[Rfam]
RNA sequence: CAUCACCCUAGGCUUAGCGGCUGAAAGAGCGGACUCAUUCCCCGCUUUGGGUGAUACCUUUCUGGAAUG
Number, nucleotide and partner (000 for none) at each position: 001c000002a055003u054004c053005a052006c051007c050008c049009u000010a000011g022012g021013c020014u019015u000016a000017g000018c000019g014020g013021c012022u011023g000024a000025a000026a000027g000028a046029g045030c044031g043032g042033a000034c000035u000036c000037a000038u000039u067040c000041c065042c032043c031044g030045c029046u028047u000048u000049g008050g007051g006052u005053g004054a003055u002056a000057c000058c000059u000060u000061u000062c000063u000064g000065g041066a000067a039068u000069g000
Shown here is a 69-nucleotide sequence from methanotrophic endosymbiont of Bathymodiolus puteoserpentis, a member of the family "int-alpA RNA". The family's consensus secondary structure is taken from published work. Rfam 15.1 lists 577 matches to the family in 491 species.